[Rfam]
RNA sequence: GGAUGUGAGGGUGAUCUGGCUGCGACAUCUGUCACCCCAUUGAUCGCCAGGGUUAAUUUGGCUGAUCUGGCUGGCUAGGCGGGUGUCCCCUUCCUCCCUCACCGCUCCAUGUGCGUCCCUCCCGAAGCUGCACGCUCGGUGGAAGAGGAUGACAUCCCAGGUAUAGAAGAAGUGUACUGAGGUCUCCAGUCUUUGGUCCCGGGUAUACGAUAGCUGCGCUCUCUUGCUAGAACCUCCAAACAAGCUCAAGGUCCAUUUGUAGGAGAACGUAGGGUACUCAGAUAUUAUAGAAUUGUACUUUCAGUUCCUAUUAAUA
Numbered sequence: 001g002g003a004u005g006u007g008a009g010g011g012u013g014a015u016c017u018g019g020c021u022g023c024g025a026c027a028u029c030u031g032u033c034a035c036c037c038c039a040u041u042g043a044u045c046g047c048c049a050g051g052g053u054u055a056a057u058u059u060g061g062c063u064g065a066u067c068u069g070g071c072u073g074g075c076u077a078g079g080c081g082g083g084u085g086u087c088c089c090c091u092u093c094c095u096c097c098c099u100c101a102c103c104g105c106u107c108c109a110u111g112u113g114c115g116u117c118c119c120u121c122c123c124g125a126a127g128c129u130g131c132a133c134g135c136u137c138g139g140u141g142g143a144a145g146a147g148g149a150u151g152a153c154a155u156c157c158c159a160g161g162u163a164u165a166g167a168a169g170a171a172g173u174g175u176a177c178u179g180a181g182g183u184c185u186c187c188a189g190u191c192u193u194u195g196g197u198c199c200c201g202g203g204u205a206u207a208c209g210a211u212a213g214c215u216g217c218g219c220u221c222u223c224u225u226g227c228u229a230g231a232a233c234c235u236c237c238a239a240a241c242a243a244g245c246u247c248a249a250g251g252u253c254c255a256u257u258u259g260u261a262g263g264a265g266a267a268c269g270u271a272g273g274g275u276a277c278u279c280a281g282a283u284a285u286u287a288u289a290g291a292a293u294u295g296u297a298c299u300u301u302c303a304g305u306u307c308c309u310a311u312u313a314a315u316a
Stems, first nucleotide, its partner, number of pairs: 001108003005102007013093002018090002024087010035074002037070003042067004046062003116170002119166002122139004127135002140161001147157003214281002220276001222274006234265004240260005283316003287311004292305004